[Rfam]
RNA sequence: GAACACCUCAAAGAAUCGCUAUCAAAGCACCACAUACGGAGCAGUAGUUUUCUUAAAAUUACUCGCUCAACUUAUUGCUUUGGGGAAAGUCCUCGGACACAUGGCAGAAAGUGUCGCCCAUAAUGUGGCAUUACCAUUCGUUGGGACCUUUAUACCGAAGAAAGAGUUUACUCUUGAGGCUUUUGUGGUUGUUACGUUUGGUUUCGUUGGUCAUAGCACAGUUAUGCGAUUGUGGUCUCUUCUGAUCUUCUUUGAAGAUAGGGAGGUCAUAACUUAACGAGGCUUACUCUUGGGGUGUU
Numbered sequence: 001g002a003a004c005a006c007c008u009c010a011a012a013g014a015a016u017c018g019c020u021a022u023c024a025a026a027g028c029a030c031c032a033c034a035u036a037c038g039g040a041g042c043a044g045u046a047g048u049u050u051u052c053u054u055a056a057a058a059u060u061a062c063u064c065g066c067u068c069a070a071c072u073u074a075u076u077g078c079u080u081u082g083g084g085g086a087a088a089g090u091c092c093u094c095g096g097a098c099a100c101a102u103g104g105c106a107g108a109a110a111g112u113g114u115c116g117c118c119c120a121u122a123a124u125g126u127g128g129c130a131u132u133a134c135c136a137u138u139c140g141u142u143g144g145g146a147c148c149u150u151u152a153u154a155c156c157g158a159a160g161a162a163a164g165a166g167u168u169u170a171c172u173c174u175u176g177a178g179g180c181u182u183u184u185g186u187g188g189u190u191g192u193u194a195c196g197u198u199u200g201g202u203u204u205c206g207u208u209g210g211u212c213a214u215a216g217c218a219c220a221g222u223u224a225u226g227c228g229a230u231u232g233u234g235g236u237c238u239c240u241u242c243u244g245a246u247c248u249u250c251u252u253u254g255a256a257g258a259u260a261g262g263g264a265g266g267u268c269a270u271a272a273c274u275u276a277a278c279g280a281g282g283c284u285u286a287c288u289c290u291u292g293g294g295g296u297g298u299u
Stems, first nucleotide, its partner, number of pairs: 002299010014231006022083007039064003043060003087285003091282004103115004116129003131201003139196002142194003145190004155179002163174004233269009